[Rfam]
A member of the RNA family "Bacterial large subunit ribosomal RNA" from uncultured candidate division WWE3 bacterium EJ0ADIGA11YD11, 384 nucleotides of a longer RNA. The family's consensus secondary structure is taken from published work. The organism belongs to candidate division WWE3, within Bacteria.

RNA sequence: GAGAUCCAUGUGAAAACCAUGGACGCCGAAUAUCUAAGGUUUCCUCCGCCAUGCCAGUCAGCGGAGGGUUAGUCGAUCCUAAGGUGAGGCUGAAAAGCGUAACCGAUGGAUAGCAGGUUAAUAUUCCUGCACUGCUAUAAAUUCGUUUUUACCGAUGGGGUGACGAAGUAUGACAGAUCGGGCCCGAUAAGGAUUCGGGUUCCAAAAGCAAGGUAGUCCUUAUAGGAAAAUCCGUAGGGGCGUUUUUACCCGAGUUUAGGAAAAGCCUAUCGCAAGAUGGGUAAUUCGAUUGGUUCAAAUUUCCAAGAAAAACCUCUAGGGAGAGUUUAUAGUAUUCGUACCGCAAACCGACACAGGUAGAUUGGUAGAGUAUACCAAGGCGAG
Dot-bracket structure: ....((((((.......))))))((((....((((..((...((((((...((.....)).))))))......(((.((...(((.(.(((....))).).)))...))...(((((........)))))..(((((((((((........((...(((((...((((..(((..(((((.((((((.......))))))(....(((...((...(((((((.((.....))))))))).........))...))).....).(((((((....)))))))....)))))...)))..))))........)))))..))...))))))))))).)))..)).....((......)).)))).((((.....))))..))))..